The record is a 107-nucleotide sequence from Laceyella tengchongensis, which matches "SAM riboswitch aptamer (S box leader)" in Rfam.

RNA sequence: CUCUUAUCAAGAGAGGGGUAGGGACCAGGCCCGUUGAACCCUCGGCAACCAUCUGAGAUCCAUCAGAAAGGUGCCAAUUCCUGCAGAUUCGUUCUGACAGAUGAGAG
Numbered sequence: 001c002u003c004u005u006a007u008c009a010a011g012a013g014a015g016g017g018g019u020a021g022g023g024a025c026c027a028g029g030c031c032c033g034u035u036g037a038a039c040c041c042u043c044g045g046c047a048a049c050c051a052u053c054u055g056a057g058a059u060c061c062a063u064c065a066g067a068a069a070g071g072u073g074c075c076a077a078u079u080c081c082u083g084c085a086g087a088u089u090c091g092u093u094c095u096g097a098c099a100g101a102u103g104a105g106a107g
Base pairs, nucleotide, nucleotide: 001107002106003105004104005103006102007101008100013043014042015041016040017039021032022031023030026083027082028081029080044075045074046073047072049071050070052067053066054065055064079099084096085095086094087093